[Rfam]
RNA sequence: UCUGCUACAAUAAAAAGGUCGCAAAAGCGAUCCUUGGGACUUAUCAACCUUUGCCCAAGCAUAUUAGAAGCAGCGAAGACUGCUAAAGGAGCAUAUUUUG
Numbered sequence: 001u002c003u004g005c006u007a008c009a010a011u012a013a014a015a016a017g018g019u020c021g022c023a024a025a026a027g028c029g030a031u032c033c034u035u036g037g038g039a040c041u042u043a044u045c046a047a048c049c050u051u052u053g054c055c056c057a058a059g060c061a062u063a064u065u066a067g068a069a070g071c072a073g074c075g076a077a078g079a080c081u082g083c084u085a086a087a088g089g090a091g092c093a094u095a096u097u098u099u100g
Stems, first nucleotide, its partner, number of pairs: 018031005033059006048089004069084005
Notes
The record is a 100-nucleotide RNA sequence from Lactococcus termiticola, which matches "PreQ1-II (pre queuosine) riboswitch aptamer" in Rfam. Gene Ontology term of the family: queuosine biosynthetic process. From the family's description: preQ1-II riboswitch was first reported for Weinberg et al. 2007 it was recognised in Streptococcaceae and Lactococcus families in 5' untranslated regions of genes of a membrane protein classified as COG4708 or DUF988. Meyers et al. 2008 confirm that preQ1-II recognise the queuosine (Q) precursor pre-queuosine 1 (preQ1). Q is a hyper modified nucleoside present in some anticodons in tRNAs (Try, Asn, Asp and His). The organism belongs to Lactococcus, within Bacteria.